[Rfam]
RNA sequence: CACCAGGUUGAUUCUGCCUGACGUAGACGCUAUUCCCUAAGAUUAACCCAUGCAUGUUUUUGACAUUUGAAAAAUGGACUGCUCAGUAAUACUCACUUUAUUUAAUGUACAUUUGAAAAUAACUACGUUAAAGUGUAGAUAAGAUGUGUACAGUAAGAGUGAGACCUAUCAGCUAGUUGUUAAGGUAAUGGCUUAACAAGGCAGUGACGGGUAACGGUAUUACUUUGUAAUAUUCCGGAGAAGGAGCCUGAGAGACGGCUACUAAGUCUAAGGAUUGCAGCAGGGGCGAAACUUGACCUAUGGAUUUUAUCUGAGGCAGUUAUGGGAAGUAAUAUUAUAUUGUUUCAUAUUGUAAAAGUAUAUGAGGUGAUUAAUUGGAGGGCAAAUCAAGUGCCAGCAGCCGCGGUAAUACUUGUUCCAAGAGUGUGUAUGAUGAUUGAUG
Dot-bracket structure: ...(((((.......))))).((((.(((((.(((((.(((.....(((.(((..((.(((.........)))))......(((.......(((((((..((...(((((((....(.....((((((....))))))......))))))))..))))))))).(((....(((..((((((((.......)))))))))))......)))...(((..((((...))))....)))))).((.(((..........))).)).((((....))))...)))))).).....(.(.(...(((((...))))).).)).))..)))))................((((((.........)))))).........((((((.......((((.....((....)).......)))))))))).))))).))))..........
The record is a 442-nucleotide part of an RNA from uncultured Nosema, which matches "Microsporidia small subunit ribosomal RNA" in Rfam. Rfam 15.1 lists 1,035 matches to the family in 436 species. The base pairs follow the family's consensus structure, which is taken from published work. A reference for the family is Yusupov et al. (2001), "Crystal structure of the ribosome at 5.5 A resolution", Science. Its family is annotated with ribosome and structural constituent of ribosome in the Gene Ontology. It is one of the family's seed sequences. Clan: SSU clan.